This 93-nucleotide RNA sequence from Planomicrobium sp. CPCC 101110 belongs to the Rfam family "Selenocysteine transfer RNA". NCBI's taxonomy places the organism under Bacteria, Bacillota, Bacilli, Caryophanaceae, Planomicrobium.
[Rfam]
RNA sequence: GGGGUUGGUUGGGUGACUGGUGUCCUCCUGGGUCUUCAAAACCCUGAGGGGCCUGCGUGCCAGGCUCGGUGGGUUCGAUUCCCACACAGUCCC
Number, nucleotide and partner (000 for none) at each position: 001g093002g092003g091004g090005u089006u088007g087008g000009u000010u000011g000012g027013g026014u000015g024016a023017c022018u000019g000020g000021u000022g017023u016024c015025c000026u013027c012028c046029u000030g044031g043032g042033u041034c000035u000036u000037c000038a000039a000040a000041a033042c032043c031044c030045u000046g028047a000048g000049g067050g066051g065052c064053c063054u000055g000056c000057g000058u000059g000060c000061c000062a000063g053064g052065c051066u050067c049068g000069g000070u084071g083072g082073g081074u000075u000076c000077g000078a000079u000080u000081c073082c072083c071084a070085c000086a000087c007088a006089g005090u004091c003092c002093c001
Annotation:
Rfam links the family to the GO term triplet codon-amino acid adaptor activity. Clan: tRNA clan.